[Rfam]
RNA sequence: UGCCUGAUAACAUGUCUCUUGUAGCCACAAGCCUUGACCGGAGAUGCUACAUUGUGCCAACAGUGAGUUUUUGGACAUCUCACAUUUCAUAGGAACAUGUGGCUGUGAUUCAGUUGGUACACAGAUCCGUUUUUUGUGAUUACACUU
Numbered sequence: 001u002g003c004c005u006g007a008u009a010a011c012a013u014g015u016c017u018c019u020u021g022u023a024g025c026c027a028c029a030a031g032c033c034u035u036g037a038c039c040g041g042a043g044a045u046g047c048u049a050c051a052u053u054g055u056g057c058c059a060a061c062a063g064u065g066a067g068u069u070u071u072u073g074g075a076c077a078u079c080u081c082a083c084a085u086u087u088c089a090u091a092g093g094a095a096c097a098u099g100u101g102g103c104u105g106u107g108a109u110u111c112a113g114u115u116g117g118u119a120c121a122c123a124g125a126u127c128c129g130u131u132u133u134u135u136g137u138g139a140u141u142a143c144a145c146u147u
Stems, first nucleotide, its partner, number of pairs: 002057002005054004013046006021038002024032002080139005092128002098123002101120001102118003
Small nucleolar RNA snoR2/U65: a 147-nucleotide RNA sequence from Triticum turgidum. On this family, see Shaw et al., J Cell Sci 1998: "Localization and processing from a polycistronic precursor of novel snoRNAs in maize". Gene Ontology terms of the family: RNA processing and nucleolus. The family's consensus secondary structure was predicted with WAR. The source organism's lineage runs through Eukaryota, Liliopsida, Poales, Triticum and Triticum turgidum. Its Rfam clan is "SNORA65 clan".